[Rfam]
RNA: mir-454 microRNA precursor family
RNA sequence: GUUGGAAAGCUCUGAGGAUAAGACCCUAUCGAUAUUGUCUCUGCUUCUAUUUUGGCUCCUAGUAGUGCAAUAUUGCUUAUAGGGUCUUUUCUUUGGGGAGGG
Numbered sequence: 001g002u003u004g005g006a007a008a009g010c011u012c013u014g015a016g017g018a019u020a021a022g023a024c025c026c027u028a029u030c031g032a033u034a035u036u037g038u039c040u041c042u043g044c045u046u047c048u049a050u051u052u053u054g055g056c057u058c059c060u061a062g063u064a065g066u067g068c069a070a071u072a073u074u075g076c077u078u079a080u081a082g083g084g085u086c087u088u089u090u091c092u093u094u095g096g097g098g099a100g101g102g
Stems, first nucleotide, its partner, number of pairs: 020088010030075009041065005